[Rfam]
RNA sequence: UUGACAGAAGAGAGUGAGCACACAAAGUCAAAUUAUACCAAAGUGAGUUGUAUGAUUGUUUUGGGUGCUCACUGCUCUAUCUGUCAU
Numbered sequence: 001u002u003g004a005c006a007g008a009a010g011a012g013a014g015u016g017a018g019c020a021c022a023c024a025a026a027g028u029c030a031a032a033u034u035a036u037a038c039c040a041a042a043g044u045g046a047g048u049u050g051u052a053u054g055a056u057u058g059u060u061u062u063g064g065g066u067g068c069u070c071a072c073u074g075c076u077c078u079a080u081c082u083g084u085c086a087u
Stems, first nucleotide, its partner, number of pairs: 002086007010077003013073009023063003
mir-156 microRNA precursor family: an 87-nucleotide sequence from Helianthus annuus. For this family Rfam cites "MicroRNAs in plants" (Reinhart et al., Genes Dev, 2002). The organism belongs to Helianthus, within Eukaryota. Rfam's curators write: This family represents the plant microRNA (miRNA) precursor mir-156.